[Rfam]
Rfam assigns this 108-nucleotide RNA from Aureimonas sp. Leaf454 to the family "SAM-I/IV (S-adenosyl methionine) riboswitch aptamer". Clan: SAM clan. It scores 59 bits against the family's covariance model.
RNA sequence: GAUCUGCAUCAAGAGUUGGGACGACGCCCAACGCCAACCUGCCGAUCCGGGCAAGGUGGUAUUCCCAUGAGGGAAGAUGUGGCCGAUCCGGCAAUUCACGGACCCCAG
Numbered sequence: 001g002a003u004c005u006g007c008a009u010c011a012a013g014a015g016u017u018g019g020g021a022c023g024a025c026g027c028c029c030a031a032c033g034c035c036a037a038c039c040u041g042c043c044g045a046u047c048c049g050g051g052c053a054a055g056g057u058g059g060u061a062u063u064c065c066c067a068u069g070a071g072g073g074a075a076g077a078u079g080u081g082g083c084c085g086a087u088c089c090g091g092c093a094a095u096u097c098a099c100g101g102a103c104c105c106c107a108g
Stems, first nucleotide, its partner, number of pairs: 006080005015032006033060003038056003041052003048101001082092004
Dot-bracket structure: .....(((((....((((((......))))))(((..((((((....[.))).))).)))...............))))).((((...))))........].......